The record is a 210-nucleotide sequence, which matches "Group II catalytic intron D1-D4-6" in Rfam.
Rfam links the family to the GO term Group II intron splicing.
The literature on the family includes a 2003 paper in Crit Rev Biochem Mol Biol by Lehmann and Schmidt, "Group II introns: structure and catalytic versatility of large natural ribozymes".
RNA sequence: ACAUGCCAUCCUCCCUGGAUCCCCGCCACGAGCUCCGCCGCGUCCAACAGGGGCUCGAACUUCGUGAAGCCCAGGGGCACGUGCAGGCCGGGUAUUGAACCGCGAAAAGUCCCACUUCCGGGACGCCGACGUCGCUAGGGGUCGAUGGAAGGCAACAUCGGUCGCACCGUCAUCGCAAGGCGCGACUGAGUCCCGCGCGGUCUGAGACCC
Numbered sequence: 001a002c003a004u005g006c007c008a009u010c011c012u013c014c015c016u017g018g019a020u021c022c023c024c025g026c027c028a029c030g031a032g033c034u035c036c037g038c039c040g041c042g043u044c045c046a047a048c049a050g051g052g053g054c055u056c057g058a059a060c061u062u063c064g065u066g067a068a069g070c071c072c073a074g075g076g077g078c079a080c081g082u083g084c085a086g087g088c089c090g091g092g093u094a095u096u097g098a099a100c101c102g103c104g105a106a107a108a109g110u111c112c113c114a115c116u117u118c119c120g121g122g123a124c125g126c127c128g129a130c131g132u133c134g135c136u137a138g139g140g141g142u143c144g145a146u147g148g149a150a151g152g153c154a155a156c157a158u159c160g161g162u163c164g165c166a167c168c169g170u171c172a173u174c175g176c177a178a179g180g181c182g183c184g185a186c187u188g189a190g191u192c193c194c195g196c197g198c199g200g201u202c203u204g205a206g207a208c209c210c
Base pairs, nucleotide, nucleotide: 012031013030016028017027018026020178023175033077034076035075036074037072040070041066042065043064046061051056096204097202099201100200101199102198103197104196119195120194121193122192123191124190125153126152127151130147131146132145133144158189159188160187161186162185163184164183165182167180168179
Rfam 15.1 lists 1,617 matches to the family in 661 species.